A member of the RNA family "Small nucleolar RNA SNORA31" from Struthidea cinerea, 130 nucleotides long. The family has 5 seed sequences and 2,094 matches in Rfam 15.1. ACA31 (SNORA31) belongs to the H/ACA class of snoRNAs which are thought to guide the sites of modification of uridines to pseudouridines. ACA31 is predicted to guide the pseudouridylation of U3713 in 28S rRNA and U218 in 18S rRNA. This family includes the mouse homologue snoMBI-161. Rfam links the family to the GO terms nucleolus and RNA processing. Pairs were carried over by alignment from the consensus structure, which was predicted with RNAalifold.

[Rfam]
RNA sequence: CAGCAUCCUCUGAUAGACCAUGGGCACUUUUCCUGUUGCUCCCUGGUUUGCACUAAGAUGCGAAAAUAACUUCCUUGCGCUUUCUGCCUGCCUGACUGUGGCAGCCCAGAUUGAAUUAGGGAAUACACAA
Number, nucleotide and partner (000 for none) at each position: 001c000002a000003g061004c060005a059006u058007c057008c000009u000010c000011u052012g051013a000014u050015a049016g048017a047018c046019c045020a000021u000022g041023g040024g039025c038026a037027c000028u035029u000030u000031u000032c000033c000034u000035g028036u000037u026038g025039c024040u023041c022042c000043c000044u000045g019046g018047u017048u016049u015050g014051c012052a011053c000054u000055a000056a000057g007058a006059u005060g004061c003062g000063a000064a000065a000066a000067u000068a000069a000070c000071u000072u122073c121074c120075u119076u118077g117078c000079g000080c113081u000082u000083u110084c109085u108086g107087c000088c104089u103090g102091c101092c100093u000094g000095a000096c000097u000098g000099u000100g092101g091102c090103a089104g088105c000106c000107c086108a085109g084110a083111u000112u000113g080114a000115a000116u000117u077118a076119g075120g074121g073122a072123a000124u000125a000126c000127a000128c000129a000130a000